[Rfam]
RNA sequence: CUGGAUGUGGUGAUGAGGCUUAUGUGGACUAGAGUUUCUGAUCUGGCUUAAUCCCCAGUUCUGAAGACAACCCCUUGGCUGUCUGAGCAUUCUU
Numbered sequence: 001c002u003g004g005a006u007g008u009g010g011u012g013a014u015g016a017g018g019c020u021u022a023u024g025u026g027g028a029c030u031a032g033a034g035u036u037u038c039u040g041a042u043c044u045g046g047c048u049u050a051a052u053c054c055c056c057a058g059u060u061c062u063g064a065a066g067a068c069a070a071c072c073c074c075u076u077g078g079c080u081g082u083c084u085g086a087g088c089a090u091u092c093u094u
Base pairs, nucleotide, nucleotide: 003092004091005090006089007088008087035066036065037064038063043058044057045056046055